Record summary: The record is a 133-nucleotide RNA sequence from Carassius auratus, which matches "U8 small nucleolar RNA" in Rfam. The base pairs follow the family's consensus structure, which is taken from published work. A search with the family's covariance model found it, with a score of 87 bits. Lineage of the source: Eukaryota > Osteoglossocephalai > Ostariophysi > Cyprininae > Carassius. Rfam 15.1 lists 1,597 matches to the family in 457 species.
RNA sequence: ACGUCAGUGAGGUAUAUCCUUACCUGUUACCUUAGAAAUAAGGUUUCAGAACAUGAUGAUUGGAUUUGAUGAAUACGUGAUUACUUUCCGUGUUCGCUUAGGAAAUGCAACAUCCUAACGAAUCCUGUCUGAU
Numbered sequence: 001a002c003g004u005c006a007g008u009g010a011g012g013u014a015u016a017u018c019c020u021u022a023c024c025u026g027u028u029a030c031c032u033u034a035g036a037a038a039u040a041a042g043g044u045u046u047c048a049g050a051a052c053a054u055g056a057u058g059a060u061u062g063g064a065u066u067u068g069a070u071g072a073a074u075a076c077g078u079g080a081u082u083a084c085u086u087u088c089c090g091u092g093u094u095c096g097c098u099u100a101g102g103a104a105a106u107g108c109a110a111c112a113u114c115c116u117a118a119c120g121a122a123u124c125c126u127g128u129c130u131g132a133u
Base pairs, nucleotide, nucleotide: 024049025048026047029044030043031042032041033040072094073093075091076090077089078083098118099117100116101115102114